[Rfam]
RNA sequence: AUAUUGAGUUAGCCGAAACUUUGAAAGUAAAGUGCGGGGGAUGAUUUAAAGUUCAUUGCGCGAUAAGAAUGGACAAGCGUAAGAGCUAGGGGUGAAUCGUAUAGACGACGAUGGGUUGUUUCCUCAAUCCAAACCCGACAACUAACCUCGUAGGUGAUUAAAAGGAGGAACU
Numbered sequence: 001a002u003a004u005u006g007a008g009u010u011a012g013c014c015g016a017a018a019c020u021u022u023g024a025a026a027g028u029a030a031a032g033u034g035c036g037g038g039g040g041a042u043g044a045u046u047u048a049a050a051g052u053u054c055a056u057u058g059c060g061c062g063a064u065a066a067g068a069a070u071g072g073a074c075a076a077g078c079g080u081a082a083g084a085g086c087u088a089g090g091g092g093u094g095a096a097u098c099g100u101a102u103a104g105a106c107g108a109c110g111a112u113g114g115g116u117u118g119u120u121u122c123c124u125c126a127a128u129c130c131a132a133a134c135c136c137g138a139c140a141a142c143u144a145a146c147c148u149c150g151u152a153g154g155u156g157a158u159u160a161a162a163a164g165g166a167g168g169a170a171c172u
Base pairs, nucleotide, nucleotide: 012155013154014153018033019032020031021030022029034151035150036149037148038147039146045088090136091135092134098110099109100108113130114129115128116127
RNA: c-di-AMP riboswitch aptamer (ydaO/yuaA leader)